mir-571 microRNA precursor family: an 85-nucleotide sequence from Callithrix jacchus. Rfam 15.1 lists 202 matches to the family in 33 species. Its family is annotated with RISC complex and miRNA-mediated post-transcriptional gene silencing in the Gene Ontology. A search with the family's covariance model found it, with a score of 82 bits.
RNA sequence: AUUAAGACCAAGCCUCGUGCACCAUUUCCUUGUCUGUAGCCAUGUCUGUGGGCUCUUGAGUUGGCCAGCUGAGUGAGGGCCUUCU
Numbered sequence: 001a002u003u004a005a006g007a008c009c010a011a012g013c014c015u016c017g018u019g020c021a022c023c024a025u026u027u028c029c030u031u032g033u034c035u036g037u038a039g040c041c042a043u044g045u046c047u048g049u050g051g052g053c054u055c056u057u058g059a060g061u062u063g064g065c066c067a068g069c070u071g072a073g074u075g076a077g078g079g080c081c082u083u084c085u
Stems, first nucleotide, its partner, number of pairs: 001085001004082001006080001008078002012074002015071001017069001018067002022064003026060003032053008